[Rfam]
RNA sequence: AGCUCUGUCACUCUUUGAGGGCCGUCAAGAAGGAGACGUGGCUGUGUGGAUUAGCAGCGUUGUCGGGGCGUUGACUGGGUGCCCUGCUUGGUCUUGAGUCAGCGCUUCAACCCGACGGCAGCGUUGGUGAGGGAGAGCUGUUAAAGGGUGGGAAAUGGCACUAGGCUGGAAACAGAGCACGCCACCCUCCGCUUGUUGACCGUUGCAGGAACACACCCAGGAGCU
Numbered sequence: 001a002g003c004u005c006u007g008u009c010a011c012u013c014u015u016u017g018a019g020g021g022c023c024g025u026c027a028a029g030a031a032g033g034a035g036a037c038g039u040g041g042c043u044g045u046g047u048g049g050a051u052u053a054g055c056a057g058c059g060u061u062g063u064c065g066g067g068g069c070g071u072u073g074a075c076u077g078g079g080u081g082c083c084c085u086g087c088u089u090g091g092u093c094u095u096g097a098g099u100c101a102g103c104g105c106u107u108c109a110a111c112c113c114g115a116c117g118g119c120a121g122c123g124u125u126g127g128u129g130a131g132g133g134a135g136a137g138c139u140g141u142u143a144a145a146g147g148g149u150g151g152g153a154a155a156u157g158g159c160a161c162u163a164g165g166c167u168g169g170a171a172a173c174a175g176a177g178c179a180c181g182c183c184a185c186c187c188u189c190c191g192c193u194u195g196u197u198g199a200c201c202g203u204u205g206c207a208g209g210a211a212c213a214c215a216c217c218c219a220g221g222a223g224c225u
Base pairs, nucleotide, nucleotide: 011019012018013017056225057224058223075220076219077218078217079216080215081214083209084208085207086206087205090201091200092199093198095195096194097193098192099191100140101139102138103137105135106134107133108132111129113127115124116123117122141145146190147189148188150186151185156184157183158182159181166175167174168173

Rfam assigns this 225-nucleotide RNA sequence from Bodo saltans to the family "Protozoan signal recognition particle RNA". Rfam classes the family as a non-coding RNA gene. Taxonomically the source falls in Bodo (Eukaryota, Discoba, Kinetoplastea, Eubodonida). Its family is annotated with SRP-dependent cotranslational protein targeting to membrane, signal sequence recognition and signal recognition particle, endoplasmic reticulum targeting in the Gene Ontology. A reference for the family is Wild et al. (2002), "Towards the structure of the mammalian signal recognition particle", Curr Opin Struct Biol. It scores 97 bits against the family's covariance model. The family's consensus secondary structure is taken from published work.